Histidine operon leader: a 129-nucleotide RNA sequence from Vibrio sp. qd031. At least 6 amino acid operons are known to be regulated by attenuation. For this family Rfam cites "Attenuation in amino acid biosynthetic operons" (Kolter and Yanofsky, Annu Rev Genet, 1982). The organism belongs to Vibrio, within Bacteria. Pairs were carried over by alignment from the consensus structure, which is taken from published work. Gene Ontology term of the family: histidine biosynthetic process.
RNA sequence: CCAUCAUCACCAUCACCCAAGGUAAUCUUUCGGGAGAUGUUCGCAUACCCGGGAGAUACACUCCCGGAGGACGAUUUUGAUCAACAGAUUCAAACCCUCGGGAGACCAUUCUUCCGAGGGUUUUUUAAU
Numbered sequence: 001c002c003a004u005c006a007u008c009a010c011c012a013u014c015a016c017c018c019a020a021g022g023u024a025a026u027c028u029u030u031c032g033g034g035a036g037a038u039g040u041u042c043g044c045a046u047a048c049c050c051g052g053g054a055g056a057u058a059c060a061c062u063c064c065c066g067g068a069g070g071a072c073g074a075u076u077u078u079g080a081u082c083a084a085c086a087g088a089u090u091c092a093a094a095c096c097c098u099c100g101g102g103a104g105a106c107c108a109u110u111c112u113u114c115c116g117a118g119g120g121u122u123u124u125u126u127a128a129u
Base pairs, nucleotide, nucleotide: 009046011039012038013037014036017034018033021030048067049066051065052064053063054062055061092123093122094121095120096119097118098117099116100115101114102113103112104111